Notes
This 99-nucleotide RNA sequence from Trema andersonii belongs to the Rfam family "Small nucleolar RNA R64/Z200 family". The literature on the family includes a 2002 paper in Curr Biol by Marker et al., "Experimental RNomics: identification of 140 candidates for small non-messenger RNAs in the plant Arabidopsis thaliana". The organism belongs to Trema, within Eukaryota. It is annotated as a C/D-box small nucleolar RNA. Pairs were carried over by alignment from the consensus structure, which was predicted with PFOLD.
[Rfam]
RNA sequence: UUUCGGCGAUGAGGAAUCAUGAAUAAGUUAACACAUGUCAGACUUCAGAGAUUUUUUAAAAAUCUAUGAGAUAGACAAUUCAUAUUCCCUGAGCCGAAU
Number, nucleotide and partner (000 for none) at each position: 001u000002u098003u097004c096005g095006g094007c093008g000009a000010u000011g000012a000013g000014g000015a000016a000017u000018c000019a000020u000021g000022a000023a000024u000025a000026a000027g000028u000029u000030a000031a000032c000033a000034c000035a000036u000037g000038u000039c000040a000041g000042a000043c000044u000045u000046c000047a000048g000049a000050g064051a063052u062053u061054u000055u000056u000057u000058a000059a000060a000061a053062a052063u051064c050065u000066a000067u000068g000069a000070g000071a000072u000073a000074g000075a000076c000077a000078a000079u000080u000081c000082a000083u000084a000085u000086u000087c000088c000089c000090u000091g000092a000093g007094c006095c005096g004097a003098a002099u000